[Rfam]
RNA sequence: UACAAUAGAGCACGGCUUCUCAAGGGUGGUCGGCUCAUCCCCUGCCGAAAGGGGGUGAUGCUGUGCAGGUAUAUGAAGCGCUGUCUUUGAUGUUCAUGUUUGGCAUGUUCAUCCUGGCUUUGCUGACUUACCUCAAACAGAAAUAGACCGCCCUUGAGCUUGGGGAAGCCAGGCGGUCUAUUCGCUGCUAUUCCAUGAGCCGCCCCCUGAGGGGAAGCUCUAUUGUACAGCCGCAGGUGCUGCAACACCUGCG
Dot-bracket structure: (((((.(((.(.((((((((((((((.(.(....(((.(((((......))))).)))......(..((((......(((..........)))........(((............))).))))..)..................).)..)))))))).........((..............))...........))))))((((....))))..).))).)))))....((((((((......))))))))
Shown here is a 253-nucleotide sequence from Brevibacillus fulvus, a member of the family "BsrG". Rfam 15.1 lists 614 matches to the family in 343 species. Lineage of the source: Bacteria > Bacillati > Bacilli > Paenibacillaceae > Brevibacillus. bsrE, bsrG and bsrH pair through intermolecular interactions with antisense sRNAs. They form type I toxin/antitoxin system that includes an mRNA encoding for a short, toxic peptide (bsrE, bsrG and bsrH) and an antitoxin that is comprised of an antisense RNA. bsrG encodes a 39-amino-acid toxin, and the 180 nucleotide antisense sRNA called SR4 acts as the antitoxin (they overlap by 123 nucleotides). Rfam classes the family as a small RNA. The family's consensus secondary structure was predicted with WAR. A reference for the family is Saito et al. (2008), "Novel small RNA-encoding genes in the intergenic regions of Bacillus subtilis", Gene.